A member of the RNA family "Manganese Mn2+ riboswitch aptamer (yybP-ykoY)" from Paludibacterium paludis, 181 nucleotides long. Pairs were carried over by alignment from the consensus structure.
[Rfam]
RNA sequence: CACGCCGUCAUUGGGGAGUAGCCGCUCUUCGCUUCGCUGAAGAGGCCCGCGUCAACACACUUGGCCGAUCAACGGCCAUGGCGCCGGCAGCCCGCGCCUGGCAAGACCUUUGACCGUACCGCCUCCGGAACUGGCCGGGGACGCGGUGCGGUCAUUCGUCAUGAAUCCGGCCAGGGAGUUC
Numbered sequence: 001c002a003c004g005c006c007g008u009c010a011u012u013g014g015g016g017a018g019u020a021g022c023c024g025c026u027c028u029u030c031g032c033u034u035c036g037c038u039g040a041a042g043a044g045g046c047c048c049g050c051g052u053c054a055a056c057a058c059a060c061u062u063g064g065c066c067g068a069u070c071a072a073c074g075g076c077c078a079u080g081g082c083g084c085c086g087g088c089a090g091c092c093c094g095c096g097c098c099u100g101g102c103a104a105g106a107c108c109u110u111u112g113a114c115c116g117u118a119c120c121g122c123c124u125c126c127g128g129a130a131c132u133g134g135c136c137g138g139g140g141a142c143g144c145g146g147u148g149c150g151g152u153c154a155u156u157c158g159u160c161a162u163g164a165a166u167c168c169g170g171c172c173a174g175g176g177a178g179u180u181c
Stems, first nucleotide, its partner, number of pairs: 026043003045088003049084006062078005089180003092175002
Rfam 15.1 lists 1,126 matches to the family in 1,062 species. This RNA was originally discovered in E. coli during a large scale screen and was named SraF. The family was later found to exist upstream of related families of protein genes in many bacteria, including the the yybP and ykoK genes in B. subtilis. The literature on the family includes a 2001 paper in Curr Biol by Argaman et al., "Novel small RNA-encoding genes in the intergenic regions of Escherichia coli".